[Rfam]
RNA sequence: GGACAUGAAGACUAUCUGGCUGUGACAUCUGUCACCCCAUUGAUCACCAGGGUUGACUUGGUUGAUCUGACUGGCUAGGCAGAUAUCACUGGUGUCCCCUUCCUCCCUCACUGUUCCAUGUGUAUCCCUUCCAAAGCUGCAUGCUAGGUCAAGGAGGAUGACCUUCCCCAAUAGAGACAUGCCAUUCAUUAGUCAGGGGUAUAAUGGUACCUGCAACUCCUCUGCUAGAGCCUCCAAACAAGUUCAAGGUUCAUUUAAGUUCAAGGUCCAUUUGUAGGAGAACAUAAGGUAGUCAAGCUUCCAAGACUGCUGGCACAUCCAAAUAAGGCACUGCAUGGGGCAGUCUGACACUGAUG
Numbered sequence: 001g002g003a004c005a006u007g008a009a010g011a012c013u014a015u016c017u018g019g020c021u022g023u024g025a026c027a028u029c030u031g032u033c034a035c036c037c038c039a040u041u042g043a044u045c046a047c048c049a050g051g052g053u054u055g056a057c058u059u060g061g062u063u064g065a066u067c068u069g070a071c072u073g074g075c076u077a078g079g080c081a082g083a084u085a086u087c088a089c090u091g092g093u094g095u096c097c098c099c100u101u102c103c104u105c106c107c108u109c110a111c112u113g114u115u116c117c118a119u120g121u122g123u124a125u126c127c128c129u130u131c132c133a134a135a136g137c138u139g140c141a142u143g144c145u146a147g148g149u150c151a152a153g154g155a156g157g158a159u160g161a162c163c164u165u166c167c168c169c170a171a172u173a174g175a176g177a178c179a180u181g182c183c184a185u186u187c188a189u190u191a192g193u194c195a196g197g198g199g200u201a202u203a204a205u206g207g208u209a210c211c212u213g214c215a216a217c218u219c220c221u222c223u224g225c226u227a228g229a230g231c232c233u234c235c236a237a238a239c240a241a242g243u244u245c246a247a248g249g250u251u252c253a254u255u256u257a258a259g260u261u262c263a264a265g266g267u268c269c270a271u272u273u274g275u276a277g278g279a280g281a282a283c284a285u286a287a288g289g290u291a292g293u294c295a296a297g298c299u300u301c302c303a304a305g306a307c308u309g310c311u312g313g314c315a316c317a318u319c320c321a322a323a324u325a326a327g328g329c330a331c332u333g334c335a336u337g338g339g340g341c342a343g344u345c346u347g348a349c350a351c352u353g354a355u356g
Base pairs, nucleotide, nucleotide: 001117002116003115006110007109008108010106014101018099019098024096025095026094027084028083029082030081031080032079033078035074036073038069039068042067043066044065045064046062047061048060128176129175130174131148132147134145136144137143149171156167157166158165211297212296217292218291220289221288223286224285232280233279234278235277238275239274240273241272242271322355327349329347330344331343332342333341334340
The family of this 356-nucleotide sequence from Upupa epops is "7SK RNA". The literature on the family includes a 2002 paper in Curr Biol by Blencowe, "Transcription: surprising role for an elusive small nuclear RNA". It scores 216 bits against the family's covariance model. About the family: 7SK was discovered as an abundant small nuclear RNA in the mid-70s but a possible function has only recently been suggested. Two independent studies have found that 7SK RNA binds the CDK9/cyclin T complex (known as elongation factor P-TEFb). P-TEFb activates transcription by phosphorylating the C-terminal domain of RNA polymerase II. This process is negatively regulated by the 7SK RNP. The secondary structure of 7SK RNA shown here was proposed by Wasserman and Steitz on the basis of chemical modification and enzymatic cleavage experiments. The organism belongs to Upupa, within Eukaryota. Its Rfam clan is "7SK clan".